RNA sequence: UUAGCUUCAUUUGUUCUUUAAGAACAUUGUUCUAGCUAGGUUAAUCAAUUCUAGUGGCAUAUUUUUGUGGUGAAUCAAUAACAAAUUUGUUGCCCUCGCUAUCCGGUGCUUCUUGCUAUGUUGCAUUUGGACGUUGGGUAACUACAUUU
Dot-bracket structure: .(.(...((((....(...(.....(.((((.(....((...........)).).))))..))...).))))...).)..........(((((((.((...(((((.....(.......)......)))))))..))))))).......
Numbered sequence: 001u002u003a004g005c006u007u008c009a010u011u012u013g014u015u016c017u018u019u020a021a022g023a024a025c026a027u028u029g030u031u032c033u034a035g036c037u038a039g040g041u042u043a044a045u046c047a048a049u050u051c052u053a054g055u056g057g058c059a060u061a062u063u064u065u066u067g068u069g070g071u072g073a074a075u076c077a078a079u080a081a082c083a084a085a086u087u088u089g090u091u092g093c094c095c096u097c098g099c100u101a102u103c104c105g106g107u108g109c110u111u112c113u114u115g116c117u118a119u120g121u122u123g124c125a126u127u128u129g130g131a132c133g134u135u136g137g138g139u140a141a142c143u144a145c146a147u148u149u
Stems, first nucleotide, its partner, number of pairs: 002078001004076001008072004016067001020063001026062001028059004033054001038052002089142007097133002102131005112120001
Small nucleolar RNA snoR136: a 149-nucleotide RNA sequence from Papaver nudicaule. It scores 60 bits against the family's covariance model. Lineage of the source: Eukaryota > Streptophytina > Magnoliopsida > Papaveroideae > Papaver. A reference for the family is Chen and Wu (2009), "Mining small RNA sequencing data: a new approach to identify small nucleolar RNAs in Arabidopsis", Nucleic Acids Res.